[Rfam]
RNA sequence: AUCUCUCGAAGGCGGUGACGCGCAGCGCCAUCAUCUUCAUACCUCCCUGUUGGACUUCGCCGGGCCUUUGGCCCGGCUUUUUUU
Number, nucleotide and partner (000 for none) at each position: 001a000002u000003c000004u000005c000006u000007c000008g038009a037010a036011g035012g034013c000014g000015g000016u000017g000018a000019c000020g000021c000022g000023c000024a000025g000026c000027g000028c000029c000030a000031u000032c000033a000034u012035c011036u010037u009038c008039a000040u000041a000042c000043c000044u000045c000046c000047c000048u000049g000050u000051u000052g000053g000054a000055c000056u000057u000058c000059g077060c076061c075062g074063g073064g072065c071066c000067u000068u000069u000070g000071g065072c064073c063074c062075g061076g060077c059078u000079u000080u000081u000082u000083u000084u000